[Rfam]
RNA: Plant small nucleolar RNA R71
RNA sequence: AAGAUAUCAGGGGGACACUUCUUGAUCAUAAGCUUAAAUCUCUCCCAGGCCUCAUAAAGGGAUUCUCCAUCUUUCUAUCUGAAGGUUUGGACAUCCACCCUAAGCUU
Numbered sequence: 001a002a003g004a005u006a007u008c009a010g011g012g013g014g015a016c017a018c019u020u021c022u023u024g025a026u027c028a029u030a031a032g033c034u035u036a037a038a039u040c041u042c043u044c045c046c047a048g049g050c051c052u053c054a055u056a057a058a059g060g061g062a063u064u065c066u067c068c069a070u071c072u073u074u075c076u077a078u079c080u081g082a083a084g085g086u087u088u089g090g091a092c093a094u095c096c097a098c099c100c101u102a103a104g105c106u107u
Stems, first nucleotide, its partner, number of pairs: 001107001003105001005102002057074002060071001